A member of the RNA family "Bacterial RNase P class A" from Pedobacter psychroterrae, 404 nucleotides long. A search with the family's covariance model found it, with a score of 251 bits. The organism belongs to Pedobacter, within Bacteria.
[Rfam]
Nucleotides: 404
Base pairs, nucleotide, nucleotide: 001400002399003398004397005396006395007394008393009392010391011389012355013354014353015352016351017350018349020039021038023036024035025034026033044387045386046385048384049383050382051381052380053255054254055253056252060290061289062288063287065251066250067249068248069247070084071083072082073081074080085111086109087108088107089106090105091104092103093102112246113245117244118243119240120239121238134187135186136183137182138181141178142177195213196212197211198210199209200208216235217234218233219232220231221230222229223228259312260311261310262309269303270302271301272300273299274298282294283293284292285291320337321336322335323334324333325332326331
Number, partner (000 for none) and nucleotide at each position: 001400a002399a003398u004397g005396c006395a007394a008393g009392c010391c011389g012355u013354u014353c015352u016351a017350u018349c019000g020039c021038u022000g023036u024035u025034c026033c027000u028000u029000u030000a031000u032000u033026g034025g035024g036023a037000g038021a039020g040000a041000g042000g043000a044387a045386a046385g047000u048384c049383c050382g051381g052380g053255c054254a055253a056252c057000a058000c059000a060290g061289g062288g063287c064000g065251u066250c067249c068248c069247g070084c071083u072082u073081c074080c075000u076000a077000a078000c079000g080074g081073g082072a083071a084070g085111a086109g087108g088107u089106u090105u091104g092103g093102g094000a095000a096000u097000g098000a099000a100000c101000a102093c103092c104091c105090g106089a107088a108087u109086u110000a111085u112246g113245g114000a115000a116000a117244g118243u119240g120239c121238c122000a123000c124000a125000g126000a127000a128000a129000a130000u131000a132000c133000a134187c135186c136183g137182c138181c139000g140000a141178u142177g143000g144000g145000a146000c147000u148000u149000g150000g151000c152000u153000g154000a155000u156000a157000c158000c159000g160000a161000a162000a163000g164000g165000u166000u167000g168000a169000g170000c171000u172000g173000c174000u175000g176000a177142c178141a179000c180000a181138g182137g183136u184000a185000a186135g187134g188000u189000u190000g191000a192000a193000a194000a195213c196212g197211u198210g199209a200208g201000g202000u203000a204000a205000g206000g207000g208200c209199u210198c211197a212196c213195g214000a215000u216235u217234u218233u219232u220231g221230u222229c223228a224000g225000c226000g227000a228223u229222g230221g231220c232219a233218g234217a235216a236000c237000u238121g239120g240119u241000a242000a243118a244117c245113c246112c247069c248068g249067g250066g251065a252056g253055u254054u255053g256000a257000a258000a259312g260311a261310c262309c263000a264000a265000a266000u267000a268000g269303g270302c271301u272300a273299a274298c275000g276000c277000a278000u279000g280000u281000a282294g283293g284292g285291c286000u287063g288062c289061c290060c291285g292284u293283c294282c295000g296000a297000u298274g299273u300272u301271a302270g303269u304000g305000g306000g307000u308000a309262g310261g311260u312259c313000g314000u315000u316000a317000g318000a319000g320337a321336u322335a323334a324333a325332u326331g327000g328000c329000a330000a331326c332325a333324u334323u335322u336321a337320u338000a339000c340000u341000g342000g343000a344000u345000u346000a347000a348000u349018g350017a351016u352015a353014g354013a355012a356000g357000a358000c359000c360000u361000g362000a363000g364000c365000a366000a367000u368000c369000a370000g371000g372000u373000u374000a375000c376000a377000g378000a379000a380052c381051c382050c383049g384048g385046c386045u387044u388000a389011c390000a391010g392009g393008c394007u395006u396005g397004c398003a399002u400001u401000u402000u403000a404000u